[Rfam]
RNA sequence: ACGUGCUCCGGGGUCGGUGAAAGUCCGAGCCGGCGGUGACAGUCCGCGACCCGCAGCCGUGGCCGGUUCGUCCGGCCUCGGUGGCGGUUGACCUGGUGGAACUCCAGGACCGACGGUGAAAGUCCGGAUGGGAGGAAGCACGG
Numbered sequence: 001a002c003g004u005g006c007u008c009c010g011g012g013g014u015c016g017g018u019g020a021a022a023g024u025c026c027g028a029g030c031c032g033g034c035g036g037u038g039a040c041a042g043u044c045c046g047c048g049a050c051c052c053g054c055a056g057c058c059g060u061g062g063c064c065g066g067u068u069c070g071u072c073c074g075g076c077c078u079c080g081g082u083g084g085c086g087g088u089u090g091a092c093c094u095g096g097u098g099g100a101a102c103u104c105c106a107g108g109a110c111c112g113a114c115g116g117u118g119a120a121a122g123u124c125c126g127g128a129u130g131g132g133a134g135g136a137a138g139c140a141c142g143g
Stems, first nucleotide, its partner, number of pairs: 003141004007135002015027003029123002031112002033047004042110002051087004092108005114126003

This 143-nucleotide RNA from Salana multivorans belongs to the Rfam family "FMN riboswitch aptamer (RFN element)". It scores 84 bits against the family's covariance model. Rfam describes the family as follows. The RFN element is a highly conserved domain that is found frequently in the 5'-untranslated regions of prokaryotic mRNAs that encode for flavin mononucleotide (FMN) biosynthesis and transport proteins.